[Rfam]
SAM-III riboswitch aptamer (SMK box): an 81-nucleotide RNA sequence from Enterococcus cecorum.
On this family, see Fuchs et al., Proc Natl Acad Sci U S A 2007: "S-adenosylmethionine directly inhibits binding of 30S ribosomal subunits to the SMK box translational riboswitch RNA".

RNA sequence: AUUCGUUGCAAGUUCCCGAAAGGAUUCGCCUCUUUGCGAAGAUGCCUUGUAACCGAAUAAUUUUAGGGGGAAUACUUCAUG
Numbered sequence: 001a002u003u004c005g006u007u008g009c010a011a012g013u014u015c016c017c018g019a020a021a022g023g024a025u026u027c028g029c030c031u032c033u034u035u036g037c038g039a040a041g042a043u044g045c046c047u048u049g050u051a052a053c054c055g056a057a058u059a060a061u062u063u064u065a066g067g068g069g070g071a072a073u074a075c076u077u078c079a080u081g
Stems, first nucleotide, its partner, number of pairs: 013072005020048004025040005053067002

The organism belongs to Enterococcus cecorum, within Bacteria.